[Rfam]
RNA sequence: UCCGCCGAGGGGCGCUGCAAGUCCGGUCGCAAGGAUUGGAAUCAGGCUCGGCGGGAAUUUCGUCAAACGGCGCCCGCAGCAA
Dot-bracket structure: .(((((((.............(((((((.....))))))).......)))))))............................
Numbered sequence: 001u002c003c004g005c006c007g008a009g010g011g012g013c014g015c016u017g018c019a020a021g022u023c024c025g026g027u028c029g030c031a032a033g034g035a036u037u038g039g040a041a042u043c044a045g046g047c048u049c050g051g052c053g054g055g056a057a058u059u060u061c062g063u064c065a066a067a068c069g070g071c072g073c074c075c076g077c078a079g080c081a082a
Stems, first nucleotide, its partner, number of pairs: 002054007022040007
Rfam assigns this 82-nucleotide RNA sequence from Ahniella affigens to the family "SAH (S-adenosyl-L-homocysteine) riboswitch aptamer". The family has 52 seed sequences and 1,354 matches in Rfam 15.1. It scores 55 bits against the family's covariance model.